[Rfam]
RNA sequence: AUAAUGAUACUUCCGUCCAGUCACAGCACCCCUUGGUCGGGGAAUAAGGCAAUGAGGGCGGCUCUAUGAGAACCAUAGUGGGAUGAGAAUUCCAUGA
Numbered sequence: 001a002u003a004a005u006g007a008u009a010c011u012u013c014c015g016u017c018c019a020g021u022c023a024c025a026g027c028a029c030c031c032c033u034u035g036g037u038c039g040g041g042g043a044a045u046a047a048g049g050c051a052a053u054g055a056g057g058g059c060g061g062c063u064c065u066a067u068g069a070g071a072a073c074c075a076u077a078g079u080g081g082g083a084u085g086a087g088a089a090u091u092c093c094a095u096g097a
Base pairs, nucleotide, nucleotide: 012094013061014060015059016058017057018056062080064078066076067075068074081093082092083091
Dot-bracket structure: ...........(((((((.....................................))))))(.(.(((.....))).).)(((.......))))...

A member of the RNA family "pemK RNA", 97 nucleotides long. Rfam's curators put it in the seed alignment.